[Rfam]
RNA sequence: UGGAUGGGGGCUGGCGGUGCACCCUGGUCAGAUGUGGAACAGCGAGAGUUGGUUCACCAAUCAGUUCGGGGCAUGGGCUGACAUGGGUCAUGGCGGUGGCUUAAGCCCGAGCCUUUGAUACGCCCAUAGAGACGUCAUUUCCACAAUUGUGGGAUCGAGCUCGUACCGUCUCAGCAUGCUUUGGCACCUGCGUACUCCAAGCGUCGGCUUGUAGGCUCCCUAUUUGGCCCGUCUUGAAACACGG
Numbered sequence: 001u002g003g004a005u006g007g008g009g010g011c012u013g014g015c016g017g018u019g020c021a022c023c024c025u026g027g028u029c030a031g032a033u034g035u036g037g038a039a040c041a042g043c044g045a046g047a048g049u050u051g052g053u054u055c056a057c058c059a060a061u062c063a064g065u066u067c068g069g070g071g072c073a074u075g076g077g078c079u080g081a082c083a084u085g086g087g088u089c090a091u092g093g094c095g096g097u098g099g100c101u102u103a104a105g106c107c108c109g110a111g112c113c114u115u116u117g118a119u120a121c122g123c124c125c126a127u128a129g130a131g132a133c134g135u136c137a138u139u140u141c142c143a144c145a146a147u148u149g150u151g152g153g154a155u156c157g158a159g160c161u162c163g164u165a166c167c168g169u170c171u172c173a174g175c176a177u178g179c180u181u182u183g184g185c186a187c188c189u190g191c192g193u194a195c196u197c198c199a200a201g202c203g204u205c206g207g208c209u210u211g212u213a214g215g216c217u218c219c220c221u222a223u224u225u226g227g228c229c230c231g232u233c234u235u236g237a238a239a240c241a242c243g244g
Base pairs, nucleotide, nucleotide: 001226002225003224004223005222006221007220008219009218010217011215012214017074022071023070024069025068026067078207079206080205081204082203084201229244230243231242232241
RNA: Eukaryotic large subunit ribosomal RNA, nucleotides 420 to 663